[Rfam]
RNA sequence: UGACCUCAGUUCAGACAAGGCUACCCGCCGAAUUUAAGCAUAUUACUAAGCGGAGGAAAAGAAACUAACAAGGAUUCCCCUAGUAACGGCGAGCGAACCGGGAAGAGCCCAACUUGAAAAUCUAAAGGUUUUACCUUUCGAAUUGUAGUCUAGAGACGCGUUCUCUGCGGCGGAUCGGCUCCAAGUUCCCUGGAAAGGGACGUCAGAGAGGGUGAGAACCCCGUCGAAGCCGGUUUCAGUCGCUCCACGAGGCGCAGUCAAGGAGUCGGGUUGUUUGGGAAUGCAGCCCUAAGCAGGUGGUAAAUUCCAUCUAAGGCUAAAUAUUGGCGAGAGACCGAUAGCGAACAAGUACCGCGAGGGAAAGAUGAAAAGACCUUUGAAAAGAGAGUUAAAAAGUACCUGAAAUUGUUGAGGGGGAAGCGAUUCAAACCUGUGGGUGCUCCCGGGGCAGUAGCAAUACACGCGCUCGGGGCUGGUCAACGUGGGUUAGCUUGGAGGGAUAUCACUUCCGAGUUGACCGAGGACUCGACGUUGGCGGAAAGGUUUGCAUUGACCCGUCUAGAAACACGG
Dot-bracket structure: .......................(((((......((....)).......)))).).........((....))...((((.......(.....)......))))..((((....(((.((.((.((((.......)))).)).)).)))......((.(((.((((.(((((((.((((((....(.((((......)))))..(...)..((.......))......))))))..)).))))).....)))))))..))........(((((((........))))))).....(((((........)))))..)))).................................((....))...............((((....))))..................................((((.(((((((....(..((((.((...................)).)))))...(((((((.............................................))))))).....))))))).))))..((((........))))
RNA: Eukaryotic large subunit ribosomal RNA, nucleotides 1 to 570